The record is a 106-nucleotide sequence from Methylotenera versatilis, which matches "Guanidine-I riboswitch aptamer" in Rfam. On this family, see Trachman RJ 3rd and Ferre-D'Amare, RNA 2021: "An uncommon [K(+)(Mg(2+))2] metal ion triad imparts stability and selectivity to the Guanidine-I riboswitch". Pairs were carried over by alignment from the consensus structure.

[Rfam]
RNA sequence: CAAAAAGAUGACUAGGGUUCCGGCUUUUAUUUUAUAAGAGUGUCUGGUCCGAGAGUUGUCGGCCAAUCAACAUGUGGCUACACGGAGGGAUAAAAGCCCGGGAGGA
Numbered sequence: 001c002a003a004a005a006a007g008a009u010g011a012c013u014a015g016g017g018u019u020c021c022g023g024c025u026u027u028u029a030u031u032u033u034a035u036a037a038g039a040g041u042g043u044c045u046g047g048u049c050c051g052a053g054a055g056u057u058g059u060c061g062g063c064c065a066a067u068c069a070a071c072a073u074g075u076g077g078c079u080a081c082a083c084g085g086a087g088g089g090a091u092a093a094a095a096g097c098c099c100g101g102g103a104g105g106a
Base pairs, nucleotide, nucleotide: 007060008059009058010057011056012055015050016049020047021046022044023041024040025039026038027037028036061079062078063077064076065075081101083104087099088098089097